[Rfam]
RNA sequence: CGCUACGUCACGGGAGAGAGCCACCGAUCGGGUUGGGGUGGCCGCCGAAGGAGCAACACCUCCUCGUCAAACUCUCAGGCACCCAGGACCGUGGAGUUGAC
Numbered sequence: 001c002g003c004u005a006c007g008u009c010a011c012g013g014g015a016g017a018g019a020g021c022c023a024c025c026g027a028u029c030g031g032g033u034u035g036g037g038g039u040g041g042c043c044g045c046c047g048a049a050g051g052a053g054c055a056a057c058a059c060c061u062c063c064u065c066g067u068c069a070a071a072c073u074c075u076c077a078g079g080c081a082c083c084c085a086g087g088a089c090c091g092u093g094g095a096g097u098u099g100a101c
Stems, first nucleotide, its partner, number of pairs: 006096001008094006020042006044080003047076002051074003058067002

This 101-nucleotide RNA sequence from Gordonia insulae belongs to the Rfam family "Glycine riboswitch aptamer". Rfam links the family to the GO term glycine biosynthetic process.